[Rfam]
RNA sequence: CCUUAUGGUGCAAAUCCAAUUAUCUAAAUUGGAAAUAAGAAGCAAUUCCCCCAUUGAUAGCAAAUGGUUAUCCAUUAAGCGGAGGAAAUAGUAA
Numbered sequence: 001c002c003u004u005a006u007g008g009u010g011c012a013a014a015u016c017c018a019a020u021u022a023u024c025u026a027a028a029u030u031g032g033a034a035a036u037a038a039g040a041a042g043c044a045a046u047u048c049c050c051c052c053a054u055u056g057a058u059a060g061c062a063a064a065u066g067g068u069u070a071u072c073c074a075u076u077a078a079g080c081g082g083a084g085g086a087a088a089u090a091g092u093a094a
Base pairs, nucleotide, nucleotide: 006018007017008016048084051082052081053075054074056072057071058070059069060068061067
Plastid-rps12 3UTR RNA: a 94-nucleotide sequence from Colpodium biebersteinianum. Rfam's curators write: Plastid rpl20 is a non-coding RNA (ncRNA) recognised in plastids. Lineage of the source: Eukaryota > Streptophytina > Mesangiospermae > Coleanthinae > Colpodium. The family has 1,299 seed sequences and 1,710 matches in Rfam 15.1. Rfam classes the family as a cis-regulatory element.